A member of the RNA family "Mason-Pfizer monkey virus packaging signal" from Nannospalax galili, 281 nucleotides long. Rfam classes the family as a cis-regulatory element. NCBI's taxonomy places the organism under Eukaryota, Craniata, Sarcopterygii, Muroidea, Nannospalax. The literature on the family includes a 2004 paper in Virus Res by Mustafa et al., "Mutational analysis of the predicted secondary RNA structure of the Mason-Pfizer monkey virus packaging signal". Rfam describes the family as follows. This family represents a group of sequences that are related to the Mason-Pfizer monkey virus (MPMV) packaging signal. The packaging signal is located in the 5' UTR and is required for specific RNA encapsidation. Pairs were carried over by alignment from the consensus structure, which was predicted with PFOLD. Its family is annotated with viral genome packaging in the Gene Ontology.
[Rfam]
RNA sequence: UGGCGCCCAAUGUGGGGCCUGGAUACUGGGGGCAUCAUGAGGGAGACGAUGGAAAAAGGAAGGAGUGCACUCGCUAAAUCUCAAGCAAUUCGGAGACGCGCCGUGGGAGCCUGCCAUGACCGAACCCAAGGUAAGUCAAGCCAUCCAAAUCAUGGGGCAAGAAUUAGGCCAGCAUCAGAUUUACGUUAUACAGUUAAUGGAAGCUGUCAAGACAAGAGAAGUACAGGUUAAGACUGAGGAUUUAUUUCAUUUCUUUGAUUUUGUAAAGGACAUUUGUCCAU
Numbered sequence: 001u002g003g004c005g006c007c008c009a010a011u012g013u014g015g016g017g018c019c020u021g022g023a024u025a026c027u028g029g030g031g032g033c034a035u036c037a038u039g040a041g042g043g044a045g046a047c048g049a050u051g052g053a054a055a056a057a058g059g060a061a062g063g064a065g066u067g068c069a070c071u072c073g074c075u076a077a078a079u080c081u082c083a084a085g086c087a088a089u090u091c092g093g094a095g096a097c098g099c100g101c102c103g104u105g106g107g108a109g110c111c112u113g114c115c116a117u118g119a120c121c122g123a124a125c126c127c128a129a130g131g132u133a134a135g136u137c138a139a140g141c142c143a144u145c146c147a148a149a150u151c152a153u154g155g156g157g158c159a160a161g162a163a164u165u166a167g168g169c170c171a172g173c174a175u176c177a178g179a180u181u182u183a184c185g186u187u188a189u190a191c192a193g194u195u196a197a198u199g200g201a202a203g204c205u206g207u208c209a210a211g212a213c214a215a216g217a218g219a220a221g222u223a224c225a226g227g228u229u230a231a232g233a234c235u236g237a238g239g240a241u242u243u244a245u246u247u248c249a250u251u252u253c254u255u256u257g258a259u260u261u262u263g264u265a266a267a268g269g270a271c272a273u274u275u276g277u278c279c280a281u
Base pairs, nucleotide, nucleotide: 006031007030008029012026013025014024035049036048038046085132086131089129090128099122100121102118103117104116105115106114140158141157144156145155146154147153166207168204169203216256217255218254220252221251225243226242227241228240229239266281268279269278270277271276